[Rfam]
RNA: HTH-XRE RNA
RNA sequence: GAUCAGCAUUAGGUUGGGGUAUACAAGACGGGUAUGCAUCGGAACUCCCACCAGGUAAGCUUGUAAAGGUGAUUCCCUUUUC
Numbered sequence: 001g002a003u004c005a006g007c008a009u010u011a012g013g014u015u016g017g018g019g020u021a022u023a024c025a026a027g028a029c030g031g032g033u034a035u036g037c038a039u040c041g042g043a044a045c046u047c048c049c050a051c052c053a054g055g056u057a058a059g060c061u062u063g064u065a066a067a068g069g070u071g072a073u074u075c076c077c078u079u080u081u082c
Base pairs, nucleotide, nucleotide: 013052015050016049017048018047019037020036021035022034023033024032